A. fumigatus sRNA Afu_309: a 280-nucleotide sequence from Purpureocillium lilacinum. The organism belongs to Purpureocillium, within Eukaryota. By type it is a small RNA. The literature on the family includes a 2008 paper in Nucleic Acids Res by Jochl et al., "Small ncRNA transcriptome analysis from Aspergillus fumigatus suggests a novel mechanism for regulation of protein synthesis". The family's consensus secondary structure was predicted with WAR.
[Rfam]
RNA sequence: CUUUCACAUACAAUCACGGAUCUGUGCUUUGCGGUCCCUUGGUCCUCCGGGAUUUCAGGGUCGACUGCUCUGCAGCUCGAUAACUUCAUGGAGCCAUCAACCUGCUAUGGUGGUAAUAAUCCUAUCGACAGGUCCCAGAACAACUGGCCCCGACGGUCCGGCUCGUCGUCGCAAGACGGCUUGAGCUUGGCCGUCGGUGGUCGGAGGCGCUAUAUUCCAAACCCCUUUUCCGAGAUCGUCGGUCGGUGAGGUUGGGGCAAACCAUUGCCUGUCUACAUUU
Number, nucleotide and partner (000 for none) at each position: 001c000002u000003u000004u000005c000006a000007c000008a000009u000010a000011c000012a000013a000014u000015c000016a000017c000018g135019g134020a133021u132022c131023u130024g129025u128026g073027c072028u000029u000030u000031g068032c000033g066034g065035u064036c063037c060038c059039u058040u057041g056042g053043u052044c051045c050046u000047c000048c000049g000050g045051g044052a043053u042054u000055u000056c041057a040058g039059g038060g037061u000062c000063g036064a035065c034066u033067g000068c031069u000070c000071u000072g027073c026074a000075g000076c000077u000078c000079g000080a000081u127082a000083a125084c000085u124086u000087c000088a000089u118090g117091g000092a000093g114094c113095c112096a000097u000098c000099a000100a000101c000102c000103u000104g000105c000106u000107a000108u000109g000110g000111u000112g095113g094114u093115a000116a000117u090118a089119a000120u000121c000122c000123u000124a085125u083126c000127g081128a025129c024130a023131g022132g021133u020134c019135c018136c000137a000138g000139a000140a000141c000142a000143a000144c000145u000146g000147g201148c200149c199150c197151c196152g195153a194154c193155g192156g000157u000158c000159c000160g000161g186162c185163u184164c183165g180166u179167c178168g177169u176170c175171g000172c000173a000174a000175g170176a169177c168178g167179g166180c165181u000182u000183g164184a163185g162186c161187u000188u000189g000190g000191c000192c155193g154194u153195c152196g151197g150198u000199g149200g148201u147202c000203g000204g000205a000206g273207g272208c271209g268210c267211u000212a265213u264214a000215u000216u000217c000218c000219a000220a000221a000222c257223c256224c255225c254226u000227u000228u000229u000230c251231c250232g000233a000234g244235a243236u242237c241238g000239u000240c000241g237242g236243u235244c234245g000246g000247u000248g000249a000250g231251g230252u000253u000254g225255g224256g223257g222258c000259a000260a000261a000262c000263c000264a213265u212266u000267g210268c209269c000270u000271g208272u207273c206274u000275a000276c000277a000278u000279u000280u000